[Rfam]
Nucleotides: 082
Stems, first nucleotide, its partner, number of pairs: 005079002010075003017068006027057001030055004035050002
Number, partner (000 for none) and nucleotide at each position: 001000a002000c003000c004000c005079u006078g007000a008000g009000a010075g011074g012073c013000g014000u015000a016000g017068c018067u019066c020065u021064u022063c023000a024000a025000a026000c027057g028000g029000u030055a031054g032053c033052u034000c035050u036049g037000u038000g039000g040000u041000u042000a043000c044000c045000u046000g047000a048000u049036c050035a051000a052033a053032g054031c055030u056000g057027c058000c059000a060000g061000a062000u063022g064021a065020a066019g067018a068017g069000c070000u071000g072000u073012g074011c075010u076000u077000c078006c079005a080000g081000g082000g
A member of the RNA family "mir-22 microRNA precursor family" from Branchiostoma floridae, 82 nucleotides long. The family's consensus secondary structure was predicted with RNAalifold. For this family Rfam cites "Identification of novel genes coding for small expressed RNAs" (Lagos-Quintana et al., Science, 2001). NCBI's taxonomy places the organism under Eukaryota, Deuterostomia, Cephalochordata, Leptocardii, Branchiostoma.